[Rfam]
RNA sequence: GGAAGGGCGACCAACCAUCUGAAAGAAGCCUAAGUGCAAAUCUGUGAGCCACUGGACAAAAACAGCAUAGUAAGGCCGAACCGCAGGGCGAGUCAGCAAAAUUGACGGAGCCCGCCUGGAUCACUGUGAAAUGGUAAAUGCUGUGGUUAUGCAGAGAAAGAUUAUAUUC
Numbered sequence: 001g002g003a004a005g006g007g008c009g010a011c012c013a014a015c016c017a018u019c020u021g022a023a024a025g026a027a028g029c030c031u032a033a034g035u036g037c038a039a040a041u042c043u044g045u046g047a048g049c050c051a052c053u054g055g056a057c058a059a060a061a062a063c064a065g066c067a068u069a070g071u072a073a074g075g076c077c078g079a080a081c082c083g084c085a086g087g088g089c090g091a092g093u094c095a096g097c098a099a100a101a102u103u104g105a106c107g108g109a110g111c112c113c114g115c116c117u118g119g120a121u122c123a124c125u126g127u128g129a130a131a132u133g134g135u136a137a138a139u140g141c142u143g144u145g146g147u148u149a150u151g152c153a154g155a156g157a158a159a160g161a162u163u164a165u166a167u168u169c
Base pairs, nucleotide, nucleotide: 001016002015005012006011028169031166032165037160041155042154043153044152045151046150047148048147049146050145051144063143064142065141066140067139068138075135076134077133082128083127084126085125086113087112088111089110092106093105094104095103
The family of this 169-nucleotide sequence from Methyloprofundus sedimenti is "Group II catalytic intron D1-D4-3". NCBI's taxonomy places the organism under Bacteria, Pseudomonadati, Gammaproteobacteria, Methylococcales, Methyloprofundus.